[Rfam]
RNA sequence: GACCCCAUCUUCACUUUGCCACCAGGGCUGUAUAUGUCUUGAGUGGUUAUUCACGUGGGGGAAAGUAUUUUAUCCUCAAGCACCCCAGUCAAAUUCUUGUUUGACGUGGGGUUGUUCUGAGGAAACAGCA
Numbered sequence: 001g002a003c004c005c006c007a008u009c010u011u012c013a014c015u016u017u018g019c020c021a022c023c024a025g026g027g028c029u030g031u032a033u034a035u036g037u038c039u040u041g042a043g044u045g046g047u048u049a050u051u052c053a054c055g056u057g058g059g060g061g062a063a064a065g066u067a068u069u070u071u072a073u074c075c076u077c078a079a080g081c082a083c084c085c086c087a088g089u090c091a092a093a094u095u096c097u098u099g100u101u102u103g104a105c106g107u108g109g110g111g112u113u114g115u116u117c118u119g120a121g122g123a124a125a126c127a128g129c130a
Stems, first nucleotide, its partner, number of pairs: 035062001037060003043054004073123006086108001088105007